[Rfam]
RNA sequence: AUAGACAAGUAGAAGCACCCGCUUCUCACCUGAUCGACGCUUUGAGUAGUUGGCAGGUCAUCAUAUUUCAAGCUAGCAUACGGAAUUAGUAUGUUUCGUUGAGAAAUAAUCGUGUGGGUGCAAUCUUGUACCGACACUUUUUUUAUGGU
Numbered sequence: 001a002u003a004g005a006c007a008a009g010u011a012g013a014a015g016c017a018c019c020c021g022c023u024u025c026u027c028a029c030c031u032g033a034u035c036g037a038c039g040c041u042u043u044g045a046g047u048a049g050u051u052g053g054c055a056g057g058u059c060a061u062c063a064u065a066u067u068u069c070a071a072g073c074u075a076g077c078a079u080a081c082g083g084a085a086u087u088a089g090u091a092u093g094u095u096u097c098g099u100u101g102a103g104a105a106a107u108a109a110u111c112g113u114g115u116g117g118g119u120g121c122a123a124u125c126u127u128g129u130a131c132c133g134a135c136a137c138u139u140u141u142u143u144u145a146u147g148g149u
Stems, first nucleotide, its partner, number of pairs: 011026006028058003036051003039047002113136003117132006
Dot-bracket structure: ..........((((((....)))))).(((.....(((((.....)).)))....)))......................................................(((.((((((....)))))).))).............
Shown here is a 149-nucleotide sequence from Aquisalibacillus elongatus, a member of the family "Ribosomal protein L20 leader". For this family Rfam cites "Diverse mechanisms for regulating ribosomal protein synthesis in Escherichia coli" (Zengel and Lindahl, Prog Nucleic Acid Res Mol Biol, 1994). This family is a putative r-protein leader autoregulatory structure found in B. subtilis and other low-GC Gram-positive bacteria. It is located in the 5' untranslated regions of mRNAs encoding initiation factor 3 followed by ribosomal proteins L35 and L20 (infC-rpmI-rplT). The organism belongs to Aquisalibacillus, within Bacteria. The family's RNA type in Rfam is cis-regulatory leader.